RNA sequence: UUGCAAUGAUGACAUCUUAGGACACCUUUGAAAUUGACCGUGAAACCACUUAUUUUCUUGAAUCUGAGCAAC
Numbered sequence: 001u002u003g004c005a006a007u008g009a010u011g012a013c014a015u016c017u018u019a020g021g022a023c024a025c026c027u028u029u030g031a032a033a034u035u036g037a038c039c040g041u042g043a044a045a046c047c048a049c050u051u052a053u054u055u056u057c058u059u060g061a062a063u064c065u066g067a068g069c070a071a072c
Base pairs, nucleotide, nucleotide: 001071002070003069004068

This 72-nucleotide RNA sequence from Astyanax mexicanus belongs to the Rfam family "Small nucleolar RNA SNORD58". It scores 54 bits against the family's covariance model. Taxonomically the source falls in Astyanax (Eukaryota, Eumetazoa, Teleostomi, Clupeocephala). Rfam links the family to the GO terms nucleolus and RNA processing. It is annotated as a C/D-box small nucleolar RNA.